[Rfam]
RNA sequence: UGGGCAGUAUCUUUUAAGAACUGCACCUUUUGUAAAAUGAAAAUCAAAAUUAAAAAGGUUUCUGCCUAGAUCCGAUUAUCGGACCGGGACAGAGGG
Numbered sequence: 001u002g003g004g005c006a007g008u009a010u011c012u013u014u015u016a017a018g019a020a021c022u023g024c025a026c027c028u029u030u031u032g033u034a035a036a037a038u039g040a041a042a043a044u045c046a047a048a049a050u051u052a053a054a055a056a057g058g059u060u061u062c063u064g065c066c067u068a069g070a071u072c073c074g075a076u077u078a079u080c081g082g083a084c085c086g087g088g089a090c091a092g093a094g095g096g
Stems, first nucleotide, its partner, number of pairs: 002027002004024005010019002062092003065088003069084001071083003
Shown here is a 96-nucleotide RNA sequence from Neobacillus bataviensis, a member of the family "pan motif". Rfam classes the family as a cis-regulatory element.